Shown here is a 281-nucleotide RNA sequence from Mycoplasmopsis columbina, a member of the family "Bacterial RNase P class B". Clan: RNaseP clan. About the family: Ribonuclease P (RNase P) is a ubiquitous endoribonuclease, found in archaea, bacteria and eukarya as well as chloroplasts and mitochondria. Its best characterised activity is the generation of mature 5'-ends of tRNAs by cleaving the 5'-leader elements of precursor-tRNAs. Cellular RNase Ps are ribonucleoproteins. Rfam classes the family as a ribozyme. The organism belongs to Mycoplasmopsis columbina, within Bacteria.

RNA sequence: CACAUUGGUCAACAGCUAUUUGUAUAAAAUAGAGGAAAGUCCACGCUAACACAAUCUGCGAUGAUUGUAGUGUUCAUGCUGAGCCCAAUAAGCUCAGGCCUAGACGACUAGUGCCACAGAGACGAGAAUUGUGAAACGCGGUAAACUCCAUGAGUUAGAAACCCAAAUAUUGGUAGGGGAACCCUUUCGAUAGAAUAAUGAAUUGACAAAGGGAACUAAAAUUAUUUUAGUUAGAUAAAUUGUUGACACCUUGCAAAAGGAACAAAACGUGGCUUAUAGAU
Numbered sequence: 001c002a003c004a005u006u007g008g009u010c011a012a013c014a015g016c017u018a019u020u021u022g023u024a025u026a027a028a029a030u031a032g033a034g035g036a037a038a039g040u041c042c043a044c045g046c047u048a049a050c051a052c053a054a055u056c057u058g059c060g061a062u063g064a065u066u067g068u069a070g071u072g073u074u075c076a077u078g079c080u081g082a083g084c085c086c087a088a089u090a091a092g093c094u095c096a097g098g099c100c101u102a103g104a105c106g107a108c109u110a111g112u113g114c115c116a117c118a119g120a121g122a123c124g125a126g127a128a129u130u131g132u133g134a135a136a137c138g139c140g141g142u143a144a145a146c147u148c149c150a151u152g153a154g155u156u157a158g159a160a161a162c163c164c165a166a167a168u169a170u171u172g173g174u175a176g177g178g179g180a181a182c183c184c185u186u187u188c189g190a191u192a193g194a195a196u197a198a199u200g201a202a203u204u205g206a207c208a209a210a211g212g213g214a215a216c217u218a219a220a221a222u223u224a225u226u227u228u229a230g231u232u233a234g235a236u237a238a239a240u241u242g243u244u245g246a247c248a249c250c251u252u253g254c255a256a257a258a259g260g261a262a263c264a265a266a267a268c269g270u271g272g273c274u275u276a277u278a279g280a281u
Base pairs, nucleotide, nucleotide: 004281005280006279007277008247009246010245011244012243013242014241016032017031018030019029020028021027037275038274039273041272042271043270044269045268046158047157048156049155050154051068052067053066054065055064056063074153075152076151077150078149079097080096081095082094083093084092098105099103106148107147111146112145113142114141115140162178163177164176182213183212184211185210186209187208214232215231216230217229218228219227220226221225249260250259251258252257